[Rfam]
RNA sequence: GCUCGCUAUUAAAUAUAGGUUUAAUAGUUUAAUUAGAUCUAUAACCUAGGGCAAUCCGCUAGCCUCGGCUAGUAUUAGCUUUCUAUUAGGGGUAAAGGUAUUAAGAAUAUAGCUCUCCUUCGGGGGAGUAUUAUAGCUUAUCGUAUUAUACCCUUUAAGGGGCUAAGGUAUACGCUCCGUAAGGAUAUUAAUAUAAUAGUAAUUAAUAACCUAUCUUAAAAUACGG
Numbered sequence: 001g002c003u004c005g006c007u008a009u010u011a012a013a014u015a016u017a018g019g020u021u022u023a024a025u026a027g028u029u030u031a032a033u034u035a036g037a038u039c040u041a042u043a044a045c046c047u048a049g050g051g052c053a054a055u056c057c058g059c060u061a062g063c064c065u066c067g068g069c070u071a072g073u074a075u076u077a078g079c080u081u082u083c084u085a086u087u088a089g090g091g092g093u094a095a096a097g098g099u100a101u102u103a104a105g106a107a108u109a110u111a112g113c114u115c116u117c118c119u120u121c122g123g124g125g126g127a128g129u130a131u132u133a134u135a136g137c138u139u140a141u142c143g144u145a146u147u148a149u150a151c152c153c154u155u156u157a158a159g160g161g162g163c164u165a166a167g168g169u170a171u172a173c174g175c176u177c178c179g180u181a182a183g184g185a186u187a188u189u190a191a192u193a194u195a196a197u198a199g200u201a202a203u204u205a206a207u208a209a210c211c212u213a214u215c216u217u218a219a220a221a222u223a224c225g226g
Base pairs, nucleotide, nucleotide: 001207003205005203007201008200009199010198015065018064019063020062021061070190071189072188073187074186075185211226212225214223